[Rfam]
RNA sequence: UCGGCCGUAAACACCCAAUCAUCAGUAGGCCGA
Numbered sequence: 001u002c003g004g005c006c007g008u009a010a011a012c013a014c015c016c017a018a019u020c021a022u023c024a025g026u027a028g029g030c031c032g033a
Base pairs, nucleotide, nucleotide: 001033002032003031004030005029006028011026012025
Dot-bracket structure: ((((((....((............)).))))))
Rfam assigns this 33-nucleotide RNA sequence from Cardiovirus theileri to the family "Cardiovirus cis-acting replication element (CRE)". Rfam's curators put it in the seed alignment. A reference for the family is Lobert et al. (1999), "A coding RNA sequence acts as a replication signal in cardioviruses", Proc Natl Acad Sci U S A. Taxonomically the source falls in Theilovirus (Viruses, Orthornavirae, Picornaviridae, Cardiovirus theileri).